RNA sequence: AGGGGUCUUCAGGGCGGGGUGGAAUUCCCCACCGGCGGUAGGUGGCGCAAGCCACGAGCCCGCGAGCGCGUCCGACCGGGUCAGAUCCCGCCGGAUGGUCAGCAGAUCCAGUUCGAUGCUGGAGCCGACGGUCACAGUCCGGAUGAAAGAAGAUUCGC
Dot-bracket structure: ..((((((((......(((.......))).[[((((((...................[[))))..((..................................))...(((((.......)))))]])).(((.....]]))).......))))))))..
A member of the RNA family "FMN riboswitch aptamer (RFN element)" from Caenimonas aquaedulcis, 158 nucleotides long.
Taxonomically the source falls in Caenimonas (Bacteria, Pseudomonadota, Betaproteobacteria, Burkholderiales).
Pairs were carried over by alignment from the consensus structure, which is taken from published work.